[Rfam]
Background:
This 67-nucleotide sequence from Damaliscus pygargus belongs to the Rfam family "tRNA". Rfam classes the family as a transfer RNA. NCBI's taxonomy places the organism under Eukaryota, Opisthokonta, Deuterostomia, Boreoeutheria, Damaliscus.
RNA sequence: CGAGAUAUAGCUUAAACAAAGCAUCUAGUUUACACCUAGAAGAUUUCACACAUCAUGAAUAUCUUGA
Number, nucleotide and partner (000 for none) at each position: 001c066002g065003a064004g063005a062006u061007a060008u000009a000010g022011c021012u020013u019014a000015a000016a000017c000018a000019a013020a012021g011022c010023a000024u040025c039026u038027a037028g036029u000030u000031u000032a000033c000034a000035c000036c028037u027038a026039g025040a024041a000042g000043a000044u000045u059046u058047c057048a056049c000050a000051c000052a000053u000054c000055a000056u048057g047058a046059a045060u007061a006062u005063c004064u003065u002066g001067a000